RNA sequence: GAGUUUUGUUGAGUGGCGAGGUUAACUCUUAUGAGAGGUAGCCGUAGCGAAAGCAAUUACACGCACAGCAAUGGAGGUGUAACGUAAUAAAUGCGUCAGUCACUUGAGGAAGACCCGAAUCCGGUCGAUCUACACCUGAGUAGGUUGAAGCUAAGUGAAAACUUGGUGGAGGACCCAACUGGUUCUGAUGUGCAAAUCGUUCAGAUGACUUGGGUGUAGGGGUCAAAGGCCAAUCUAGGCCGGUAAUAGCGGGUU
Numbered sequence: 001g002a003g004u005u006u007u008g009u010u011g012a013g014u015g016g017c018g019a020g021g022u023u024a025a026c027u028c029u030u031a032u033g034a035g036a037g038g039u040a041g042c043c044g045u046a047g048c049g050a051a052a053g054c055a056a057u058u059a060c061a062c063g064c065a066c067a068g069c070a071a072u073g074g075a076g077g078u079g080u081a082a083c084g085u086a087a088u089a090a091a092u093g094c095g096u097c098a099g100u101c102a103c104u105u106g107a108g109g110a111a112g113a114c115c116c117g118a119a120u121c122c123g124g125u126c127g128a129u130c131u132a133c134a135c136c137u138g139a140g141u142a143g144g145u146u147g148a149a150g151c152u153a154a155g156u157g158a159a160a161a162c163u164u165g166g167u168g169g170a171g172g173a174c175c176c177a178a179c180u181g182g183u184u185c186u187g188a189u190g191u192g193c194a195a196a197u198c199g200u201u202c203a204g205a206u207g208a209c210u211u212g213g214g215u216g217u218a219g220g221g222g223u224c225a226a227a228g229g230c231c232a233a234u235c236u237a238g239g240c241c242g243g244u245a246a247u248a249g250c251g252g253g254u255u
Stems, first nucleotide, its partner, number of pairs: 005111003009107009020043004026037004047054002059080004066073002083095004114253002117250001121243006130219011141207001143175004150167007179204004185199001187198002221231003

A member of the RNA family "Archaeal large subunit ribosomal RNA" from Thermoplasmatales archaeon Gpl, 255 nucleotides of a longer RNA. Lineage of the source: Archaea > Methanobacteriati > Thermoplasmatota > Thermoplasmata > Thermoplasmatales. The base pairs follow the family's consensus structure, which is taken from published work. Rfam's curators put it in the seed alignment.